Small nucleolar RNA R38: an 82-nucleotide RNA sequence from Rhamnella rubrinervis. Pairs were carried over by alignment from the consensus structure, which was predicted with PFOLD. The match comes from Rfam's covariance-model search (61 bits). Its family is annotated with nucleolus and RNA processing in the Gene Ontology. Rfam's curators write: snoR38 is a C/D box small nucleolar RNA conserved across yeast, human, Arabidopsis and rice. It is encoded in the intron of elongation factor-1 gamma in both pombe and cerevisiae. snoR38 guides the methylation of 2'-O-ribose sites in 28S rRNA. The source organism's lineage runs through Eukaryota, Embryophyta, Spermatophyta, Magnoliopsida and Rhamnella. Rfam classes the family as a C/D-box small nucleolar RNA.

[Rfam]
RNA sequence: CGCUGUGGAUGAUGAGAAAAUUAAUUCUACAGUUAUCCCUGUCUGACGUAUGGGUGCUGACAAAUUGUGGUCUGACACAGCC
Dot-bracket structure: .((((((....................................................................)))))).